[Rfam]
RNA sequence: AAAAAGGGUGUUUACCUCUUAGUGGUACAUGUGUCCUUAAGGGCACGUGGGGUAUGGCAAUCAAGACAUACCCAGCACAUAAUUUUUGUUCCCGUGGGGCUGUUUUUUGGCAUUGUACCGAAGACGCCCCC
Numbered sequence: 001a002a003a004a005a006g007g008g009u010g011u012u013u014a015c016c017u018c019u020u021a022g023u024g025g026u027a028c029a030u031g032u033g034u035c036c037u038u039a040a041g042g043g044c045a046c047g048u049g050g051g052g053u054a055u056g057g058c059a060a061u062c063a064a065g066a067c068a069u070a071c072c073c074a075g076c077a078c079a080u081a082a083u084u085u086u087u088g089u090u091c092c093c094g095u096g097g098g099g100c101u102g103u104u105u106u107u108u109g110g111c112a113u114u115g116u117a118c119c120g121a122a123g124a125c126g127c128c129c130c131c
Stems, first nucleotide, its partner, number of pairs: 008078005013027004028049009050073007097129004102125005108120003111115001

The record is a 131-nucleotide sequence from Rhynchophorus ferrugineus, which matches "U11 spliceosomal RNA" in Rfam. The base pairs follow the family's consensus structure, which is taken from published work. The match comes from Rfam's covariance-model search (94 bits). By type it is a spliceosomal small nuclear RNA.